[Rfam]
RNA sequence: GGAGCAGCCGGCAAGUUGCAUCAUAGCGUCCCAACGAGAGUAGCGUCGACUUCGCUGUGGUGGUUGUAUUCCGUCGUGGUUGUGCACCACUACGCAGUCUUCAGCACUCUUCACAAGCUAUGGGGAAAGUCUCCGUGCCAUGGGGUCGAGAGGACCGAUGAGAAAUUCGUGGACGCCUCUCAGCUACAGUUGCCGGCGUGUUCCACGUCGCCUCUGUGACGGGCUUUUGUCUGGAGUAGAGGUUGAGUGACGGCUGGAGGUUGAUCGCACUUGCCGCGUAUAUGGCGGCUCUUCUAAGGAUUGAGUUCAUGCGACUGGUGGGAUUGUCUUCAUGAUCAUUCUGCCCACAGAAUGGAGCUUAUGUCCGAGCUGUUC
Numbered sequence: 001g002g003a004g005c006a007g008c009c010g011g012c013a014a015g016u017u018g019c020a021u022c023a024u025a026g027c028g029u030c031c032c033a034a035c036g037a038g039a040g041u042a043g044c045g046u047c048g049a050c051u052u053c054g055c056u057g058u059g060g061u062g063g064u065u066g067u068a069u070u071c072c073g074u075c076g077u078g079g080u081u082g083u084g085c086a087c088c089a090c091u092a093c094g095c096a097g098u099c100u101u102c103a104g105c106a107c108u109c110u111u112c113a114c115a116a117g118c119u120a121u122g123g124g125g126a127a128a129g130u131c132u133c134c135g136u137g138c139c140a141u142g143g144g145g146u147c148g149a150g151a152g153g154a155c156c157g158a159u160g161a162g163a164a165a166u167u168c169g170u171g172g173a174c175g176c177c178u179c180u181c182a183g184c185u186a187c188a189g190u191u192g193c194c195g196g197c198g199u200g201u202u203c204c205a206c207g208u209c210g211c212c213u214c215u216g217u218g219a220c221g222g223g224c225u226u227u228u229g230u231c232u233g234g235a236g237u238a239g240a241g242g243u244u245g246a247g248u249g250a251c252g253g254c255u256g257g258a259g260g261u262u263g264a265u266c267g268c269a270c271u272u273g274c275c276g277c278g279u280a281u282a283u284g285g286c287g288g289c290u291c292u293u294c295u296a297a298g299g300a301u302u303g304a305g306u307u308c309a310u311g312c313g314a315c316u317g318g319u320g321g322g323a324u325u326g327u328c329u330u331c332a333u334g335a336u337c338a339u340u341c342u343g344c345c346c347a348c349a350g351a352a353u354g355g356a357g358c359u360u361a362u363g364u365c366c367g368a369g370c371u372g373u374u375c
Base pairs, nucleotide, nucleotide: 002375003374004373005372006371007370008369009367010366011365014316015315016314017313018312019311021123022122023121024120025119026118027117037110038109039108040107041106127360128359129358131357132356133355134354144156145155146154147153213282215280216279217278222275223274224273234266235265254259318344319343320342321341322340323339
RNA: RNase MRP
Organism: Besnoitia besnoiti